[Rfam]
RNA sequence: CCUCGGCCUGGUUCAAGUAAUCCAGGAUAGGCUGGUUAACCCUGCACGGCCUAUUCUUGAUUACUUGUGUCAGGAAGUGG
Number, nucleotide and partner (000 for none) at each position: 001c000002c079003u000004c077005g000006g000007c074008c073009u072010g071011g070012u069013u000014c067015a066016a065017g064018u063019a062020a061021u060022c059023c000024a057025g056026g055027a054028u053029a052030g051031g050032c049033u048034g000035g000036u000037u000038a000039a000040c000041c000042c000043u000044g000045c000046a000047c000048g033049g032050c031051c030052u029053a028054u027055u026056c025057u024058u000059g022060a021061u020062u019063a018064c017065u016066u015067g014068u000069g012070u011071c010072a009073g008074g007075a000076a000077g004078u000079g002080g000